This 78-nucleotide RNA from Triticum aestivum belongs to the Rfam family "small nucleolar RNA snoR117". Its family is annotated with nucleolus and RNA processing in the Gene Ontology. The family's RNA type in Rfam is C/D-box small nucleolar RNA. Rfam 15.1 lists 419 matches to the family in 211 species.
RNA sequence: GGCCUGUGAUGUGAACAAUUUGUCAGUACCAUCUGACAUCUAUGAUGAACCAUGUUUGCCAAUGUAUCUUUGAGGCCA
Numbered sequence: 001g002g003c004c005u006g007u008g009a010u011g012u013g014a015a016c017a018a019u020u021u022g023u024c025a026g027u028a029c030c031a032u033c034u035g036a037c038a039u040c041u042a043u044g045a046u047g048a049a050c051c052a053u054g055u056u057u058g059c060c061a062a063u064g065u066a067u068c069u070u071u072g073a074g075g076c077c078a
Stems, first nucleotide, its partner, number of pairs: 001077004